[Rfam]
RNA sequence: UCGUGCUAGAUGGGAAGUUAGCGGUGUCCUGUAACCUGUAAUCCGCUACAGCAGGGUUGAAUUCCUCGCUUAGGCCUUGAAAUGUGAGGUCUGGCCUAUAUAAGUGGCGUUGAUAACUGGGCCCCACGCAAGGAAAACUUGCGAACCCCGUCAGGUCUGGAAGGAAGCAGCGGUAAGUGAGACCUUUCCUGUGCCGUGGGUAAACCUGGUUUGAGUUAACUGUAUAGGUAACGCUCAUAUUUCACUGUCGACGCGAGGUGCACGA
Numbered sequence: 001u002c003g004u005g006c007u008a009g010a011u012g013g014g015a016a017g018u019u020a021g022c023g024g025u026g027u028c029c030u031g032u033a034a035c036c037u038g039u040a041a042u043c044c045g046c047u048a049c050a051g052c053a054g055g056g057u058u059g060a061a062u063u064c065c066u067c068g069c070u071u072a073g074g075c076c077u078u079g080a081a082a083u084g085u086g087a088g089g090u091c092u093g094g095c096c097u098a099u100a101u102a103a104g105u106g107g108c109g110u111u112g113a114u115a116a117c118u119g120g121g122c123c124c125c126a127c128g129c130a131a132g133g134a135a136a137a138c139u140u141g142c143g144a145a146c147c148c149c150g151u152c153a154g155g156u157c158u159g160g161a162a163g164g165a166a167g168c169a170g171c172g173g174u175a176a177g178u179g180a181g182a183c184c185u186u187u188c189c190u191g192u193g194c195c196g197u198g199g200g201u202a203a204a205c206c207u208g209g210u211u212u213g214a215g216u217u218a219a220c221u222g223u224a225u226a227g228g229u230a231a232c233g234c235u236c237a238u239a240u241u242u243c244a245c246u247g248u249c250g251a252c253g254c255g256a257g258g259u260g261c262a263c264g265a
Base pairs, nucleotide, nucleotide: 001265002264003263004262005261006260009058010057011056012030013029014028015027017025018024019023035055036054037053038052039051064258065257066256067255068254069253073249074248075247079243080242081241082240083239084238085237086236087235088234092230093229096227097226098225099224100223101222104220105219106217107216108215115211116210117209118208119207120206121205123200124199125198126197127196128195129191130190132189133188134187135186136185138181139180140179141178142177148173149172150171151170156165157164158163

Record summary
The family of this 265-nucleotide RNA sequence from Clostridium homopropionicum is "Bacterial large signal recognition particle RNA". Rfam's curators write: The signal recognition particle (SRP) is a universally conserved ribonucleoprotein involved in the co-translational targeting of proteins to membranes. A search with the family's covariance model found it, with a score of 211 bits. Rfam classes the family as a non-coding RNA gene. Pairs were carried over by alignment from the consensus structure, which is taken from published work. Gene Ontology terms of the family: SRP-dependent cotranslational protein targeting to membrane, signal sequence recognition and signal recognition particle, plasma membrane targeting. For this family Rfam cites "Prediction of signal recognition particle RNA genes" (Regalia et al., Nucleic Acids Res, 2002).